[Rfam]
A member of the RNA family "Small nucleolar RNA SNORD115" from Carlito syrichta, 81 nucleotides long. By type it is a C/D-box small nucleolar RNA. The source organism's lineage runs through Eukaryota, Chordata, Euarchontoglires, Tarsiidae and Carlito. The literature on the family includes a 2000 paper in Proc Natl Acad Sci U S A by Cavaille et al., "Identification of brain-specific and imprinted small nucleolar RNA genes exhibiting an unusual genomic organization".
RNA sequence: GGGUCAAUGAUGAAAUCUAUGCAUGGUCUCUAGAUAGAUGUUGUCUUAAAAGUCUUGGGUAAUAGACUUUCACUGAGGACC
Numbered sequence: 001g002g003g004u005c006a007a008u009g010a011u012g013a014a015a016u017c018u019a020u021g022c023a024u025g026g027u028c029u030c031u032a033g034a035u036a037g038a039u040g041u042u043g044u045c046u047u048a049a050a051a052g053u054c055u056u057g058g059g060u061a062a063u064a065g066a067c068u069u070u071c072a073c074u075g076a077g078g079a080c081c
Stems, first nucleotide, its partner, number of pairs: 001081002004078001005075002008072002